Small nucleolar RNA SNORA20: a 131-nucleotide RNA from Loxodonta africana.
About the family: ACA20 is a member of the H/ACA class of snoRNA that guide the sites of modification of uridines to pseudouridines.
The family's RNA type in Rfam is H/ACA-box small nucleolar RNA.
The family's consensus secondary structure was predicted with ILM.
It scores 109 bits against the family's covariance model.
Rfam links the family to the GO terms nucleolus and RNA processing.
Taxonomically the source falls in Loxodonta (Eukaryota, Metazoa, Deuterostomia, Chordata).
[Rfam]
RNA sequence: CUUCCCAUUUAUUUGCUGCUAUCGUCUCUCAGUGAUAUGAGCAGUUAUACGCAUGGGAUAAAAUAUGCUGGACGUUUGUAAAUAGAGAUGAAGUCACUAUAUUUUAUCUCUUCUGCAUGGUCUAGACAUGC
Numbered sequence: 001c002u003u004c005c006c007a008u009u010u011a012u013u014u015g016c017u018g019c020u021a022u023c024g025u026c027u028c029u030c031a032g033u034g035a036u037a038u039g040a041g042c043a044g045u046u047a048u049a050c051g052c053a054u055g056g057g058a059u060a061a062a063a064u065a066u067g068c069u070g071g072a073c074g075u076u077u078g079u080a081a082a083u084a085g086a087g088a089u090g091a092a093g094u095c096a097c098u099a100u101a102u103u104u105u106a107u108c109u110c111u112u113c114u115g116c117a118u119g120g121u122c123u124a125g126a127c128a129u130g131c
Stems, first nucleotide, its partner, number of pairs: 003058006015045006022037001025035002068125006077117004085110010